Lysine riboswitch aptamer: a 168-nucleotide RNA from Mycoplasmopsis gallopavonis.
RNA sequence: UCCUCCUAUAGAGGAGCCUUUAAUAAGAGUAAAUAAGGGAGCAGGCAUGCUAGGAACUUAUUGAAAGGAUAUAAAGGCCGAAAUGCUUAAAGUGGCAAUUUUAAGCGUUGGUAGAAAAACAUAAAAGAUUUCUACUCUUUGGUUUGAACCAUUGGUGCUAUAGAAUUA
Number, nucleotide and partner (000 for none) at each position: 001u000002c000003c000004u000005c000006c163007u162008a161009u160010a159011g158012a000013g000014g000015a000016g078017c077018c076019u075020u074021u073022a000023a070024u069025a000026a000027g000028a000029g000030u000031a000032a062033a061034u060035a059036a058037g057038g000039g000040a000041g000042c000043a000044g000045g000046c000047a000048u000049g000050c000051u000052a000053g000054g000055a000056a000057c037058u036059u035060a034061u033062u032063g000064a000065a000066a000067g000068g000069a024070u023071a000072u000073a021074a020075a019076g018077g017078c016079c000080g000081a000082a109083a108084u107085g106086c105087u104088u103089a102090a101091a100092g099093u098094g000095g000096c000097a000098a093099u092100u091101u090102u089103a088104a087105g086106c085107g084108u083109u082110g136111g135112u134113a133114g132115a131116a130117a000118a129119a000120c127121a000122u000123a000124a000125a000126a000127g120128a000129u118130u116131u115132c114133u113134a112135c111136u110137c000138u000139u000140u151141g150142g149143u148144u000145u000146g000147a000148a143149c142150c141151a140152u000153u000154g000155g000156u000157g000158c011159u010160a009161u008162a007163g006164a000165a000166u000167u000168a000